[Rfam]
RNA sequence: AAUAUGAAUGGGAAUGAUGAUCUCCCAUGCGUAAUGCAAAACCGCUUAUGAAGCUGAUGACGUCUAGUUCUUU
Number, nucleotide and partner (000 for none) at each position: 001a000002a000003u000004a000005u000006g000007a000008a000009u000010g026011g025012g024013a023014a000015u000016g064017a063018u062019g061020a000021u059022c000023u013024c012025c011026c010027a000028u000029g000030c000031g000032u000033a000034a000035u000036g000037c000038a000039a000040a000041a000042c000043c000044g054045c053046u052047u000048a000049u000050g000051a000052a046053g045054c044055u000056g000057a000058u000059g021060a000061c019062g018063u017064c016065u000066a000067g000068u000069u000070c000071u000072u000073u000
Fluoride riboswitch aptamer (crcB RNA motif): a 73-nucleotide sequence from Anaerorhabdus furcosa. Lineage of the source: Bacteria > Bacillota > Erysipelotrichia > Erysipelotrichales > Anaerorhabdus. On this family, see Baker et al., Science 2012: "Widespread genetic switches and toxicity resistance proteins for fluoride". Rfam links the family to the GO terms positive regulation of gene expression and response to fluoride.